[Rfam]
RNA: mir-551 microRNA precursor family
Organism: Piprites chloris
RNA sequence: CGGCUCCAGAAAUCAAGGGUGGGUGAGACCUCGUACGCACACUCCCAGGCGACCCAUACUUGGUUUCAGGGGCUG
Numbered sequence: 001c002g003g004c005u006c007c008a009g010a011a012a013u014c015a016a017g018g019g020u021g022g023g024u025g026a027g028a029c030c031u032c033g034u035a036c037g038c039a040c041a042c043u044c045c046c047a048g049g050c051g052a053c054c055c056a057u058a059c060u061u062g063g064u065u066u067c068a069g070g071g072g073c074u075g
Stems, first nucleotide, its partner, number of pairs: 002074006009067006016060002021055004029049003